[Rfam]
RNA sequence: UAAAUUUGAGGAUAGAAAAGUCAGCUAUCGCCCUUGUUAGGAGAUGUAGGAGUGACGCCCUACCAAAUUAU
Numbered sequence: 001u002a003a004a005u006u007u008g009a010g011g012a013u014a015g016a017a018a019a020g021u022c023a024g025c026u027a028u029c030g031c032c033c034u035u036g037u038u039a040g041g042a043g044a045u046g047u048a049g050g051a052g053u054g055a056c057g058c059c060c061u062a063c064c065a066a067a068u069u070a071u
Base pairs, nucleotide, nucleotide: 003069004068005067006066007065008064011029012028013027014026015025020056021055022054023053031041046063047062048061049060050059
Rfam assigns this 71-nucleotide RNA to the family "skipping-rope RNA". The sequence is in the family's curated seed alignment. Rfam classes the family as a small RNA.